This 84-nucleotide RNA sequence from Theropithecus gelada belongs to the Rfam family "mir-548 microRNA precursor family".
A reference for the family is Witten et al. (2010), "Ultra-high throughput sequencing-based small RNA discovery and discrete statistical biomarker analysis in a collection of cervical tumours and matched controls", BMC Biol.
The family's consensus secondary structure was predicted with WAR.
It scores 90 bits against the family's covariance model.
[Rfam]
RNA sequence: UAUUAGUUUGGUGCAAAAGUAAUUGCAGUUUUUGCCAUUACUCUCAAUGGCAAAAACUUCAAUUACUUUUGCACCAAGCUAAUA
Numbered sequence: 001u002a003u004u005a006g007u008u009u010g011g012u013g014c015a016a017a018a019g020u021a022a023u024u025g026c027a028g029u030u031u032u033u034g035c036c037a038u039u040a041c042u043c044u045c046a047a048u049g050g051c052a053a054a055a056a057c058u059u060c061a062a063u064u065a066c067u068u069u070u071g072c073a074c075c076a077a078g079c080u081a082a083u084a
Base pairs, nucleotide, nucleotide: 001084002083003082004081005080006079007078008077009076010075011074012073013072014071015070016069017068018067019066020065021064022063023062024061025060027058028057029056030055031054032053033052034051035050036049037048038047039046